Annotation:
The family of this 115-nucleotide RNA sequence from Kibdelosporangium phytohabitans is "SAM riboswitch aptamer (S box leader)". It scores 86 bits against the family's covariance model. The source organism's lineage runs through Bacteria, Bacillati, Pseudonocardiales, Pseudonocardiaceae and Kibdelosporangium.

RNA sequence: UGCUCAUCCAGAGGGGCAGAGGGAUCGGCCCGAAGAAGCCCCGGCAACCGGCGUUCACCGUUCAGGUGGCGAUCACGGUGCCAAUUCCGACCGGUGAAAGCCGGAAAGAUGAGGA
Numbered sequence: 001u002g003c004u005c006a007u008c009c010a011g012a013g014g015g016g017c018a019g020a021g022g023g024a025u026c027g028g029c030c031c032g033a034a035g036a037a038g039c040c041c042c043g044g045c046a047a048c049c050g051g052c053g054u055u056c057a058c059c060g061u062u063c064a065g066g067u068g069g070c071g072a073u074c075a076c077g078g079u080g081c082c083a084a085u086u087c088c089g090a091c092c093g094g095u096g097a098a099a100g101c102c103g104g105a106a107a108g109a110u111g112a113g114g115a
Stems, first nucleotide, its partner, number of pairs: 001115001003113006013042005021031003025090004043082004048078002050074002086107001091104005